MIR2630 microRNA precursor family: a 232-nucleotide sequence from Trifolium medium. The family has 23 seed sequences and 296 matches in Rfam 15.1. The match comes from Rfam's covariance-model search (186 bits).
[Rfam]
RNA sequence: CCUUGCAAAUAUAUAACAUUUUGUUUUUGGUCCUUGAUGUUUUGUUUUAGUCCUUGCAAAAUAUGUUCAUGUUAAAAUUAGUCCUUGUAAUAUUUACUUUGGUCCUUAUUUUAAAGGACUAAAAUCAAAUAUUUUACAUUAUUACAAGGACCAAUUUCAAUAUGAAUCAAUUUUGUAAGGACUAAACUAAAACAACAAGGACCAAAAGCAAAAUGUUAUAUAUUUGCAAGGA
Dot-bracket structure: .....((((((((.((..(((.(((((((((((((..(((((((.((((.((.(((((((((...((.(((((....((.((((...((((((..............(((((........)))))............).)))))...)))).))....))))).))...))))))))).)).)))).)))))))..))))))))))))).)))..)).))))))))......